[Rfam]
This 58-nucleotide RNA from Nicoletella semolina belongs to the Rfam family "L31-Gammaproteobacteria ribosomal protein leader".
On this family, see Eckert and Weinberg, BMC Microbiol 2020: "Discovery of 20 novel ribosomal leader candidates in bacteria and archaea".
A search with the family's covariance model found it, with a score of 42 bits.
Its Rfam clan is "Ribosomal Protein L31 Leader clan".
By type it is a cis-regulatory leader.

RNA sequence: CAUAUGGUAUCAAGCAGCGGGCUUCCAAGCUUGAUGGCGAUAUGGCUUCUUUAGAGGU
Number, nucleotide and partner (000 for none) at each position: 001c044002a043003u042004a041005u040006g000007g038008u037009a000010u000011c033012a032013a031014g030015c029016a000017g000018c000019g000020g000021g000022c000023u000024u000025c000026c000027a000028a000029g015030c014031u013032u012033g011034a000035u000036g000037g008038c007039g000040a005041u004042a003043u002044g001045g000046c000047u000048u000049c000050u000051u000052u000053a000054g000055a000056g000057g000058u000